RNA sequence: GCGGCGGGACGACCCGCCGCCCACAGGACCUCAUGCGGGGACGGCCCCG
Numbered sequence: 001g002c003g004g005c006g007g008g009a010c011g012a013c014c015c016g017c018c019g020c021c022c023a024c025a026g027g028a029c030c031u032c033a034u035g036c037g038g039g040g041a042c043g044g045c046c047c048c049g
Base pairs, nucleotide, nucleotide: 001020002019003018004017005016006015007014008013036049037048038047039046040045
The family of this 49-nucleotide RNA sequence from Actinomyces slackii is "Guanidine-II riboswitch aptamer (mini-ykkC)". Pairs were carried over by alignment from the consensus structure, which is taken from published work. Its family is annotated with regulation of gene expression in the Gene Ontology. About the family: Simpler in structure and has fewer highly conserved nucleotide positions than the ykkC-yxkD leader. Despite this each of its two stem-loop structures directly bind free guanidine. Therefore, mini-ykkC RNA motif represents a distinct class of guanidine-sensing RNAs. Its crystal structure was also determined. The source organism's lineage runs through Bacteria, Actinomycetota, Actinomycetes, Actinomycetaceae and Actinomyces.